[Rfam]
RNA: Small Cajal body specific RNA 15
Organism: Erpetoichthys calabaricus
RNA sequence: GUGGAGGAUUAAGAAAGGAGUACCUUUUGCAGUAAUUUGGUUCUUCUGAUACUGUCCUCCUAGAUUAAACUGUUGAGCAAAGAACAGGUCAGGCUAUCCCAGUGUUUUGUACUGACCUACUUGCUCAACACACAGUU
Numbered sequence: 001g002u003g004g005a006g007g008a009u010u011a012a013g014a015a016a017g018g019a020g021u022a023c024c025u026u027u028u029g030c031a032g033u034a035a036u037u038u039g040g041u042u043c044u045u046c047u048g049a050u051a052c053u054g055u056c057c058u059c060c061u062a063g064a065u066u067a068a069a070c071u072g073u074u075g076a077g078c079a080a081a082g083a084a085c086a087g088g089u090c091a092g093g094c095u096a097u098c099c100c101a102g103u104g105u106u107u108u109g110u111a112c113u114g115a116c117c118u119a120c121u122u123g124c125u126c127a128a129c130a131c132a133c134a135g136u137u
Stems, first nucleotide, its partner, number of pairs: 003060006010051002018045003022041003026035002071130008086118007